[Rfam]
RNA sequence: CGGUGGACGGGGAGCUCUGAUCCGCCGGCGACAUCGGUCACCCACCGCGCGACGCGCGGUGCGCCGGCGGGGAGCAAGUGGUGAGACCGCCCCCUUGACGC
Dot-bracket structure: ..((.((.(((..((......((((((((......[[[[[[[....................))))))))...))....]]]]]..]]..))).)).))..